[Rfam]
RNA sequence: GCCAGUGAUGAUAUAAUCCACCUAUAUGAGGUGUAGUGGAGCCAAGUCUCUGCUUUUGCAGAGAGAACCUACUUGGUGAAGCUACAUUGCACAUGAUCAUACGGGAUUUAACUGAGGC
Numbered sequence: 001g002c003c004a005g006u007g008a009u010g011a012u013a014u015a016a017u018c019c020a021c022c023u024a025u026a027u028g029a030g031g032u033g034u035a036g037u038g039g040a041g042c043c044a045a046g047u048c049u050c051u052g053c054u055u056u057u058g059c060a061g062a063g064a065g066a067a068c069c070u071a072c073u074u075g076g077u078g079a080a081g082c083u084a085c086a087u088u089g090c091a092c093a094u095g096a097u098c099a100u101a102c103g104g105g106a107u108u109u110a111a112c113u114g115a116g117g118c
Stems, first nucleotide, its partner, number of pairs: 001118003048063005
RNA: Small nucleolar RNA Z278
Organism: Coffea canephora